[Rfam]
The family of this 136-nucleotide RNA from Drosophila melanogaster is "Small nucleolar RNA psi18S-1377". psi18S-1377 is a member of the H/ACA class of snoRNA. This family is responsible for guiding the modification of uridines 1377 and 1279 to pseudouridine in Drosophila 18S rRNA. Rfam links the family to the GO terms nucleolus and RNA processing.
RNA sequence: CCGUUCUUGUGUUAUUCGCUAAGCGAUUACCUAAGCUCAGCGAUUGUCAAACAGAACGUAGAUUAACUGCCGCUAAUCACUCCACAAUGUUGAGCCGACUCUCAACGGCUACUGCAUUACUAUAUGCGCCACAUUC
Number, nucleotide and partner (000 for none) at each position: 001c000002c058003g057004u056005u055006c054007u053008u000009g000010u049011g048012u000013u000014a000015u000016u043017c042018g041019c040020u039021a037022a000023g000024c000025g000026a000027u000028u000029a000030c000031c000032u000033a000034a000035g000036c000037u021038c000039a020040g019041c018042g017043a016044u000045u000046g000047u000048c011049a010050a000051a000052c000053a007054g006055a005056a004057c003058g002059u000060a000061g000062a000063u000064u000065a000066a000067c000068u000069g000070c000071c000072g000073c000074u000075a000076a000077u000078c000079a000080c000081u000082c000083c000084a000085c000086a118087a117088u116089g115090u114091u000092g000093a110094g109095c108096c107097g000098a000099c000100u000101c000102u000103c000104a000105a000106c000107g096108g095109c094110u093111a000112c000113u000114g090115c089116a088117u087118u086119a000120c000121u000122a000123u000124a000125u000126g000127c000128g000129c000130c000131a000132c000133a000134u000135u000136c000
Rfam classes the family as an H/ACA-box small nucleolar RNA. The base pairs follow the family's consensus structure, which was predicted with RNAalifold.